[Rfam]
RNA sequence: CAACGCUGAGCCUGAACGGCUUGAUUAUCUUUGAUAAUCAAUUGGUUUAGUUGUUGCGAUGUUGUGUUUGCAUAAACUCGAAUUUCGAGUUGGUAGAGUUAUCUACCAGUGUCUCGGCGCUCAGCGCUAGGACCAUACUUCCUGUAUUAUUUUGACCUGUCUGUCAAAUUUUCACACCGCCUACUUAGGCGGUGUUUUUUUAU
Numbered sequence: 001c002a003a004c005g006c007u008g009a010g011c012c013u014g015a016a017c018g019g020c021u022u023g024a025u026u027a028u029c030u031u032u033g034a035u036a037a038u039c040a041a042u043u044g045g046u047u048u049a050g051u052u053g054u055u056g057c058g059a060u061g062u063u064g065u066g067u068u069u070g071c072a073u074a075a076a077c078u079c080g081a082a083u084u085u086c087g088a089g090u091u092g093g094u095a096g097a098g099u100u101a102u103c104u105a106c107c108a109g110u111g112u113c114u115c116g117g118c119g120c121u122c123a124g125c126g127c128u129a130g131g132a133c134c135a136u137a138c139u140u141c142c143u144g145u146a147u148u149a150u151u152u153u154g155a156c157c158u159g160u161c162u163g164u165c166a167a168a169u170u171u172u173c174a175c176a177c178c179g180c181c182u183a184c185u186u187a188g189g190c191g192g193u194g195u196u197u198u199u200u201u202a203u
Stems, first nucleotide, its partner, number of pairs: 009047004015043002021041009076090005092107006146170001148168001150166001174195007